RNA sequence: GGAAACUGGUUUCAGACGGUGUUUUAGAGUAUCAAUAACAUAUCUAGCACCAUUUGAAAUCAGUGUUCU
Numbered sequence: 001g002g003a004a005a006c007u008g009g010u011u012u013c014a015g016a017c018g019g020u021g022u023u024u025u026a027g028a029g030u031a032u033c034a035a036u037a038a039c040a041u042a043u044c045u046a047g048c049a050c051c052a053u054u055u056g057a058a059a060u061c062a063g064u065g066u067u068c069u
Stems, first nucleotide, its partner, number of pairs: 001069004005064010016053001018051004025046004
The family of this 69-nucleotide sequence from Oncorhynchus kisutch is "mir-29 microRNA precursor family". Taxonomically the source falls in Oncorhynchus (Eukaryota, Craniata, Vertebrata, Gnathostomata). A reference for the family is Ambros (2001), "microRNAs: tiny regulators with great potential", Cell. Rfam 15.1 lists 3,328 matches to the family in 787 species. The match comes from Rfam's covariance-model search (63 bits). About the family: This family represents the microRNA (miRNA) precursors mir-29.